[Rfam]
RNA sequence: UUGUCCCUGCCGUGCUCGUGACUUGGCCAUACAUUCUCUGAACCUAUGUCUUACGGCAUAUGGGUUGCGGGAGUGUAGAGCUGGAGUGAUCGUCUACUCGUAGACGAACCCGAUGCUCUUCGGAUCGCGACCACCUUGAACCUCAGGGUUCGAGAUGCCGGCCUUGACGGCACAGGCGGGGCAUC
Dot-bracket structure: ....(((((((((((.(((...............(((.((((((..................(((.((((...((.(((((....((..(((((........))))))).....))))).))..)))).)))..............)))))))))...........))))))).)))))))....
Numbered sequence: 001u002u003g004u005c006c007c008u009g010c011c012g013u014g015c016u017c018g019u020g021a022c023u024u025g026g027c028c029a030u031a032c033a034u035u036c037u038c039u040g041a042a043c044c045u046a047u048g049u050c051u052u053a054c055g056g057c058a059u060a061u062g063g064g065u066u067g068c069g070g071g072a073g074u075g076u077a078g079a080g081c082u083g084g085a086g087u088g089a090u091c092g093u094c095u096a097c098u099c100g101u102a103g104a105c106g107a108a109c110c111c112g113a114u115g116c117u118c119u120u121c122g123g124a125u126c127g128c129g130a131c132c133a134c135c136u137u138g139a140a141c142c143u144c145a146g147g148g149u150u151c152g153a154g155a156u157g158c159c160g161g162c163c164u165u166g167a168c169g170g171c172a173c174a175g176g177c178g179g180g181g182c183a184u185c
Stems, first nucleotide, its partner, number of pairs: 005181007012173004017169003035155003039152006063132003067128004074122002077119005086109002090107005

Shown here is a 185-nucleotide RNA from Bordetella parapertussis, a member of the family "6S / SsrS RNA". On this family, see Wassarman and Storz, Cell 2000: "6S RNA regulates E. coli RNA polymerase activity". From the family's description: E. coli 6S RNA was the first non coding RNA to be sequenced, but its function was unknown until recently. Pairs were carried over by alignment from the consensus structure, which is taken from published work. The family has 150 seed sequences and 5,006 matches in Rfam 15.1. The organism belongs to Bordetella, within Bacteria. Rfam's curators put it in the seed alignment. It is annotated as a non-coding RNA gene.